[Rfam]
RNA sequence: GAGUUCUGAUUAAAAUAUUUAAUUAAUCUGACCUUUUUCUAAGGGUUUCUACACUUGAUCUGAGCUCA
Numbered sequence: 001g002a003g004u005u006c007u008g009a010u011u012a013a014a015a016u017a018u019u020u021a022a023u024u025a026a027u028c029u030g031a032c033c034u035u036u037u038u039c040u041a042a043g044g045g046u047u048u049c050u051a052c053a054c055u056u057g058a059u060c061u062g063a064g065c066u067c068a
Stems, first nucleotide, its partner, number of pairs: 001067004013036003018031002

Rfam assigns this 68-nucleotide RNA sequence from Sorex araneus to the family "Small nucleolar RNA U2-30". The source organism's lineage runs through Eukaryota, Opisthokonta, Sarcopterygii, Soricinae and Sorex. Rfam classes the family as a C/D-box small nucleolar RNA. Its family is annotated with nucleolus and RNA processing in the Gene Ontology. Rfam 15.1 lists 664 matches to the family in 136 species. Pairs were carried over by alignment from the consensus structure, which is taken from published work.